[Rfam]
RNA sequence: GGGUCAAUAAGGAGAACUCACAUGGUCUUGAAGAGAAAUGAUGACCUAAAUAUGCUCUUUAGGUUCAUGCUGAGUCCC
Dot-bracket structure: (((.((.((..........................................................)).))...)))